[Rfam]
RNA sequence: CUUGGGGGGGGAGGGUCCCUCGGCUGAGAUUGUGAGAGGGCACAGGCCAGGCCAAGGGACCCCUCUGGUGCAUG
Numbered sequence: 001c002u003u004g005g006g007g008g009g010g011g012a013g014g015g016u017c018c019c020u021c022g023g024c025u026g027a028g029a030u031u032g033u034g035a036g037a038g039g040g041c042a043c044a045g046g047c048c049a050g051g052c053c054a055a056g057g058g059a060c061c062c063c064u065c066u067g068g069u070g071c072a073u074g
Stems, first nucleotide, its partner, number of pairs: 003072002006069001009066002013062008022053004028047001030045005